Shown here is a 157-nucleotide RNA sequence from Aegilops tauschii, a member of the family "U1 spliceosomal RNA".
A reference for the family is Charenton et al. (2019), "Mechanism of 5' splice site transfer for human spliceosome activation", Science.
Pairs were carried over by alignment from the consensus structure, which is taken from published work.
The match comes from Rfam's covariance-model search (112 bits).
From the family's description: U1 is a small nuclear RNA (snRNA) component of the spliceosome (involved in pre-mRNA splicing).
The source organism's lineage runs through Eukaryota, Mesangiospermae, Poaceae, Pooideae and Aegilops tauschii.
The family's RNA type in Rfam is spliceosomal small nuclear RNA.
[Rfam]
RNA sequence: AUACUUACAUGGACGAGGUCAAUGGACGAUCAAGAAGGCUCAUGACCUAGAUCAAUGGUUCACAUUGCACAUAGUGAAUGUGUUGAUCUACCAUCUCCCUUGGGAGAGUGGACGUCAAAAUUUGUGUUAGAGGGGGUACGAGUUCGCGCGGCCCCUG
Numbered sequence: 001a002u003a004c005u006u007a008c009a010u011g012g013a014c015g016a017g018g019u020c021a022a023u024g025g026a027c028g029a030u031c032a033a034g035a036a037g038g039c040u041c042a043u044g045a046c047c048u049a050g051a052u053c054a055a056u057g058g059u060u061c062a063c064a065u066u067g068c069a070c071a072u073a074g075u076g077a078a079u080g081u082g083u084u085g086a087u088c089u090a091c092c093a094u095c096u097c098c099c100u101u102g103g104g105a106g107a108g109u110g111g112a113c114g115u116c117a118a119a120a121u122u123u124g125u126g127u128u129a130g131a132g133g134g135g136g137u138a139c140g141a142g143u144u145c146g147c148g149c150g151g152c153c154c155c156u157g
Stems, first nucleotide, its partner, number of pairs: 012116004016048006023042003027038001049089005059078005091111003094107003098103001132156005139150002142147001